Molybdenum/Tungsten riboswitch aptamer (Moco RNA motif): a 132-nucleotide RNA from Vibrio viridaestus.

[Rfam]
RNA sequence: AAUUUGUAACAACUCCGAAGCUUCAUGACCUAAGCCCGAUGGGUAUGGUGAUGGAGCCGUGGCAAAGCCACCGGGUUCAAUGAGAAAUGAUUGGGCCUCCCACAUUUGGAAAGGUGUUGAAAAUGUUGAUAG
Numbered sequence: 001a002a003u004u005u006g007u008a009a010c011a012a013c014u015c016c017g018a019a020g021c022u023u024c025a026u027g028a029c030c031u032a033a034g035c036c037c038g039a040u041g042g043g044u045a046u047g048g049u050g051a052u053g054g055a056g057c058c059g060u061g062g063c064a065a066a067g068c069c070a071c072c073g074g075g076u077u078c079a080a081u082g083a084g085a086a087a088u089g090a091u092u093g094g095g096c097c098u099c100c101c102a103c104a105u106u107u108g109g110a111a112a113g114g115u116g117u118u119g120a121a122a123a124u125g126u127u128g129a130u131a132g
Base pairs, nucleotide, nucleotide: 004125011118012117013116015114016113020057021056022055023054024053025052026051028049029048030047034044035043036042037041059071060070061069062068063067073098074097075096076095077094078093079092080091081090083088099109100108
NCBI's taxonomy places the organism under Bacteria, Pseudomonadota, Gammaproteobacteria, Vibrionales, Vibrio.